[Rfam]
RNA sequence: UGAAUAUGCCAGCCGAAUUUCGUAUUGAAAAUGGGGGAACCAUGUAAUUGGGGUGAAUUUCAUGAUUCGUAAGGAGCAUGAAUAGGGCGGCCUGUGGAUAUGCCCGAACCCGUCAGCUAACCUCGUAGGCUGCAGCACAGGAACCA
Numbered sequence: 001u002g003a004a005u006a007u008g009c010c011a012g013c014c015g016a017a018u019u020u021c022g023u024a025u026u027g028a029a030a031a032u033g034g035g036g037g038a039a040c041c042a043u044g045u046a047a048u049u050g051g052g053g054u055g056a057a058u059u060u061c062a063u064g065a066u067u068c069g070u071a072a073g074g075a076g077c078a079u080g081a082a083u084a085g086g087g088c089g090g091c092c093u094g095u096g097g098a099u100a101u102g103c104c105c106g107a108a109c110c111c112g113u114c115a116g117c118u119a120a121c122c123u124c125g126u127a128g129g130c131u132g133c134a135g136c137a138c139a140g141g142a143a144c145c146a
Base pairs, nucleotide, nucleotide: 011131012130013129014128018030019029020028031126032125033124034123035122036121041050042049051111052110053109059082060081061080062079063078064077085105086104087103088102
RNA: c-di-AMP riboswitch aptamer (ydaO/yuaA leader)